Source information:
Shown here is a 119-nucleotide RNA sequence from Paenibacillus sp. OAS669, a member of the family "epsC RNA". It scores 79 bits against the family's covariance model. The source organism's lineage runs through Bacteria, Bacillota, Bacilli, Paenibacillaceae and Paenibacillus. Rfam classes the family as a cis-regulatory element. Rfam 15.1 lists 450 matches to the family in 334 species.
[Rfam]
RNA sequence: GGGUGAUUCCUACUGUACCCUGAUCAUCGGAGGACUCGGUCAUGCUGUGGGUGGACAUGAUAUUCCACCUUAGACGCUAGUCGUCGAUGGUGUGAAGAUGAGGCGGGGUUAGAAACCCC
Numbered sequence: 001g002g003g004u005g006a007u008u009c010c011u012a013c014u015g016u017a018c019c020c021u022g023a024u025c026a027u028c029g030g031a032g033g034a035c036u037c038g039g040u041c042a043u044g045c046u047g048u049g050g051g052u053g054g055a056c057a058u059g060a061u062a063u064u065c066c067a068c069c070u071u072a073g074a075c076g077c078u079a080g081u082c083g084u085c086g087a088u089g090g091u092g093u094g095a096a097g098a099u100g101a102g103g104c105g106g107g108g109u110u111a112g113a114a115a116c117c118c119c
Base pairs, nucleotide, nucleotide: 001020002019003018004017007034009033010032011031013029035102036101037100038099040095041094042093043092044091045090046089049070050069051068052067053066054065055064073085074084075083076082105119106118107117108116109115